The record is a 119-nucleotide sequence from Miscanthus lutarioriparius, which matches "mir-395 microRNA precursor family" in Rfam. Gene Ontology terms of the family: miRNA-mediated post-transcriptional gene silencing and RISC complex. mir-395 was identified in both Arabidopsis thaliana and Oryza sativa computationally and was later experimentally verified. mir-395 is thought to target mRNAs coding for ATP sulphurylases.

RNA sequence: GUAACACCUAGAGUUCCCCCAAACACUUCACUAGCUAGCUAGGUAAUCAUAUACCACAUUGCGCAAGGGCAUACUAUGGUCUAGCUUGUGAAGUGUUUGCAGGGAACUCCAGGGGACAA
Numbered sequence: 001g002u003a004a005c006a007c008c009u010a011g012a013g014u015u016c017c018c019c020c021a022a023a024c025a026c027u028u029c030a031c032u033a034g035c036u037a038g039c040u041a042g043g044u045a046a047u048c049a050u051a052u053a054c055c056a057c058a059u060u061g062c063g064c065a066a067g068g069g070c071a072u073a074c075u076a077u078g079g080u081c082u083a084g085c086u087u088g089u090g091a092a093g094u095g096u097u098u099g100c101a102g103g104g105a106a107c108u109c110c111a112g113g114g115g116a117c118a119a
Stems, first nucleotide, its partner, number of pairs: 005115001007113003011109008019099001021098011033086006